[Rfam]
RNA sequence: UGGUAAUGUCUCCAGUUCCACUAUCAAUGGAGGCACUCGGCUGUACUGUGGGUAACAACCUUAGACAUGUAUUGUCACGGGUACGGUGUGAGGGUGGGUUCAAUGCCCA
Numbered sequence: 001u002g003g004u005a006a007u008g009u010c011u012c013c014a015g016u017u018c019c020a021c022u023a024u025c026a027a028u029g030g031a032g033g034c035a036c037u038c039g040g041c042u043g044u045a046c047u048g049u050g051g052g053u054a055a056c057a058a059c060c061u062u063a064g065a066c067a068u069g070u071a072u073u074g075u076c077a078c079g080g081g082u083a084c085g086g087u088g089u090g091a092g093g094g095u096g097g098g099u100u101c102a103a104u105g106c107c108c109a
Base pairs, nucleotide, nucleotide: 001020002019003018007035008034009033010032011031012030013029036092037091038090039089040087041086042085043084044083045082046081047080050061051060052059053058064076065075066074067073095109096108097107098106099105

Background: epsC RNA: a 109-nucleotide RNA from Jeotgalibacillus campisalis. It scores 95 bits against the family's covariance model. Rfam classes the family as a cis-regulatory element. The organism belongs to Jeotgalibacillus, within Bacteria. Pairs were carried over by alignment from the consensus structure, which is taken from published work.